The family of this 161-nucleotide RNA sequence is "FuFi-1 RNA". The family's consensus secondary structure is taken from published work. Rfam classes the family as a small RNA.
[Rfam]
RNA sequence: UCCGUCAGCUAAUGGCAAUUAGACUGCUGAACUUAAACUGCAUAAGUGACGGAACAUUUAAAGAAGCAUUGGUACUACACAGUGCGUCGAAAGACUGCAAAAUGUAUGUGGUGUAAAAAAUAAGGCAACGGCUGUUAGUGGUAGUACACUAACAGCUUUUG
Numbered sequence: 001u002c003c004g005u006c007a008g009c010u011a012a013u014g015g016c017a018a019u020u021a022g023a024c025u026g027c028u029g030a031a032c033u034u035a036a037a038c039u040g041c042a043u044a045a046g047u048g049a050c051g052g053a054a055c056a057u058u059u060a061a062a063g064a065a066g067c068a069u070u071g072g073u074a075c076u077a078c079a080c081a082g083u084g085c086g087u088c089g090a091a092a093g094a095c096u097g098c099a100a101a102a103u104g105u106a107u108g109u110g111g112u113g114u115a116a117a118a119a120a121u122a123a124g125g126c127a128a129c130g131g132c133u134g135u136u137a138g139u140g141g142u143a144g145u146a147c148a149c150u151a152a153c154a155g156c157u158u159u160u161g
Base pairs, nucleotide, nucleotide: 001053002052003051004050005049006048007047025042026041027040029038032124033123034122035121054105055104056103057102058101059100066085067084068083069082070081071080073146074145075144076143077142078141086095087094088093130157131156132155133154134153135152136151137150138149139148140147